[Rfam]
RNA sequence: CCCGGUCCUCGGUAGUGGCCUCCCGAACACGCUGUUCGGUGGACCUCGAUCGAAGACCGUC
Numbered sequence: 001c002c003c004g005g006u007c008c009u010c011g012g013u014a015g016u017g018g019c020c021u022c023c024c025g026a027a028c029a030c031g032c033u034g035u036u037c038g039g040u041g042g043a044c045c046u047c048g049a050u051c052g053a054a055g056a057c058c059g060u061c
Base pairs, nucleotide, nucleotide: 003059004058005057006056007055009053010052011051012050013049017045018044020042021041023039024038025037026036027035028034029033
Dot-bracket structure: ..(((((.(((((...((.((.(((((((...))))))).)).))...))))).)))))..

The record is a 61-nucleotide sequence from Antribacter soli, which matches "Actino-pnp RNA" in Rfam. Lineage of the source: Bacteria > Actinomycetota > Micrococcales > Promicromonosporaceae > Antribacter. Rfam classes the family as a cis-regulatory element.